[Rfam]
This 209-nucleotide RNA from Clostridium botulinum belongs to the Rfam family "raiA RNA". Taxonomically the source falls in Clostridium botulinum B (Bacteria, Clostridia, Eubacteriales, Clostridium botulinum).
RNA sequence: UAAAGCUAGGUUUGUGGUUGAAAGUCGAUGCUAGUCGCAGGCAAAACGAUCCACUUAAGUUAGAUAAAAUGUCUAAUGAGCAUGGUGCGGUAUAGAAGUGAGUCCUGCCAUUCAUGAAGAGUGAGAGGGUUAGUAGUGAGGAAUUAACUUUUAGUAGCAAAAGCUCCAGCAGGCGAGUGUGGGGGCAAAAACCAGGUCAACUAGCUUUA
Numbered sequence: 001u002a003a004a005g006c007u008a009g010g011u012u013u014g015u016g017g018u019u020g021a022a023a024g025u026c027g028a029u030g031c032u033a034g035u036c037g038c039a040g041g042c043a044a045a046a047c048g049a050u051c052c053a054c055u056u057a058a059g060u061u062a063g064a065u066a067a068a069a070u071g072u073c074u075a076a077u078g079a080g081c082a083u084g085g086u087g088c089g090g091u092a093u094a095g096a097a098g099u100g101a102g103u104c105c106u107g108c109c110a111u112u113c114a115u116g117a118a119g120a121g122u123g124a125g126a127g128g129g130u131u132a133g134u135a136g137u138g139a140g141g142a143a144u145u146a147a148c149u150u151u152u153a154g155u156a157g158c159a160a161a162a163g164c165u166c167c168a169g170c171a172g173g174c175g176a177g178u179g180u181g182g183g184g185g186c187a188a189a190a191a192c193c194a195g196g197u198c199a200a201c202u203a204g205c206u207u208u209a
Base pairs, nucleotide, nucleotide: 001209002208003207004206005205006204007203008202009201012200013199014198015194016193017192018191019190028180029179030178031041034091035090036089037088038087039086050085051084055080058077060075063072083187104173105172106171107170108169109123110122111121112120113119127166128165129164130163136158137157142151143150